[Rfam]
RNA sequence: GUAAAAGCUAACUAGGGUUCCGUUUCAUCAAUAGAUAAAAGACUGGUCCGAGAGUUGGCGGCAUAGAGAUAUGCUACACGGAGGGAGAAAAGCCCGGGAGGU
Dot-bracket structure: ......((((((..((...((((((.((......)).)))..).)).))....))))))((((((....)))))).(.[...(((.......))).)..]..